[Rfam]
RNA sequence: UAUCGGCAAUUAGACGCCGAGUCCGGAGAAGGCCCGUCCCCCGCCUGUACCGGACACCGCGGGAGCCUCAUCCCCCUCUCCGGGCUCCCGCCCCAUUUUUUAAGGGCCGCCGUGGUUCCCUCCGCCACGGCGGCUUUUU
Numbered sequence: 001u002a003u004c005g006g007c008a009a010u011u012a013g014a015c016g017c018c019g020a021g022u023c024c025g026g027a028g029a030a031g032g033c034c035c036g037u038c039c040c041c042c043g044c045c046u047g048u049a050c051c052g053g054a055c056a057c058c059g060c061g062g063g064a065g066c067c068u069c070a071u072c073c074c075c076c077u078c079u080c081c082g083g084g085c086u087c088c089c090g091c092c093c094c095a096u097u098u099u100u101u102a103a104g105g106g107c108c109g110c111c112g113u114g115g116u117u118c119c120c121u122c123c124g125c126c127a128c129g130g131c132g133g134c135u136u137u138u139u
Stems, first nucleotide, its partner, number of pairs: 022054005028048001031045003059091009104135001107133010